[Rfam]
RNA: Trypanosomatid snoRNA TB10cs1H3
RNA sequence: CCCCGUGGUCGGAACGUGGCAGGCCGCGGAGGGCACACCCAUCCCCCACACGCGGUUCAACACAUGAUCCCAGA
Numbered sequence: 001c002c003c004c005g006u007g008g009u010c011g012g013a014a015c016g017u018g019g020c021a022g023g024c025c026g027c028g029g030a031g032g033g034c035a036c037a038c039c040c041a042u043c044c045c046c047c048a049c050a051c052g053c054g055g056u057u058c059a060a061c062a063c064a065u066g067a068u069c070c071c072a073g074a
Base pairs, nucleotide, nucleotide: 011070012069013068015066016065017064018063023056024055025054026053027052029047031045032044033043